[Rfam]
RNA: Small nucleolar RNA snoR97
Organism: Phtheirospermum japonicum
RNA sequence: AGAUAAUAUUGGGUCUAGGGUCUGAAUAACUCAUAUAUUGUUGUGUUGUCAUCAGCUUCUUCUUUUGAUUUUUCAACGAGAUUGGAGUUAAAUAACAGCACUACAUUU
Numbered sequence: 001a002g003a004u005a006a007u008a009u010u011g012g013g014u015c016u017a018g019g020g021u022c023u024g025a026a027u028a029a030c031u032c033a034u035a036u037a038u039u040g041u042u043g044u045g046u047u048g049u050c051a052u053c054a055g056c057u058u059c060u061u062c063u064u065u066u067g068a069u070u071u072u073u074c075a076a077c078g079a080g081a082u083u084g085g086a087g088u089u090a091a092a093u094a095a096c097a098g099c100a101c102u103a104c105a106u107u108u
Base pairs, nucleotide, nucleotide: 043101044100045099046098047097048096054089055088056087057086058085059084061081062080063079064078